[Rfam]
RNA sequence: GUGUGUGUAGUUUAUGACAGUGCUCUUGCCGAGACUCGGUGAUUGCUCAAUCUCAAAGUAAAUGCCCUGAUACACUAGAA
Numbered sequence: 001g002u003g004u005g006u007g008u009a010g011u012u013u014a015u016g017a018c019a020g021u022g023c024u025c026u027u028g029c030c031g032a033g034a035c036u037c038g039g040u041g042a043u044u045g046c047u048c049a050a051u052c053u054c055a056a057a058g059u060a061a062a063u064g065c066c067c068u069g070a071u072a073c074a075c076u077a078g079a080a
Stems, first nucleotide, its partner, number of pairs: 005075005010021003031048003
RNA: Small nucleolar RNA U105B